[Rfam]
RNA sequence: ACUUCCUGGGCCGGAACGAAAAGGGAUUGGGUGUUCAAGGCACCGAUGAACUUUUGGCCUGUGGUUGUGAUGUUGUGUUUGCAAAUUGUCCGGUUUUUCGGACAUGGUAGCCAAGCUACUUUUUUCACUUCCUGUACAUUUACCCUGUCUGUCCAUAGUGAUUUUUUGCAGCACCGCAAGCUUGCGGUGCUUUUUUUU
Numbered sequence: 001a002c003u004u005c006c007u008g009g010g011c012c013g014g015a016a017c018g019a020a021a022a023g024g025g026a027u028u029g030g031g032u033g034u035u036c037a038a039g040g041c042a043c044c045g046a047u048g049a050a051c052u053u054u055u056g057g058c059c060u061g062u063g064g065u066u067g068u069g070a071u072g073u074u075g076u077g078u079u080u081g082c083a084a085a086u087u088g089u090c091c092g093g094u095u096u097u098u099c100g101g102a103c104a105u106g107g108u109a110g111c112c113a114a115g116c117u118a119c120u121u122u123u124u125u126c127a128c129u130u131c132c133u134g135u136a137c138a139u140u141u142a143c144c145c146u147g148u149c150u151g152u153c154c155a156u157a158g159u160g161a162u163u164u165u166u167u168g169c170a171g172c173a174c175c176g177c178a179a180g181c182u183u184g185c186g187g188u189g190c191u192u193u194u195u196u197u198u
Stems, first nucleotide, its partner, number of pairs: 009059004015055002021053003028046001030044005087104007106120006137168002170191008
The family of this 198-nucleotide RNA sequence from Gibbsiella quercinecans is "GcvB RNA". The family's consensus secondary structure is taken from published work. The family's RNA type in Rfam is non-coding RNA gene. The literature on the family includes a 2000 paper in Mol Microbiol by Urbanowski et al., "The gcvB gene encodes a small untranslated RNA involved in expression of the dipeptide and oligopeptide transport systems in Escherichia coli". From the family's description: The gcvB gene encodes a small untranslated RNA involved in expression of the dipeptide and oligopeptide transport systems in Escherichia coli. Included several unknown homologues in alignment (Bateman A pers obs). It base-pairs with SorC. This interaction triggers the degradation of GcvB by RNase E, alleviating the GcvB-mediated mRNA repression of other amino acid-related transport and metabolic genes.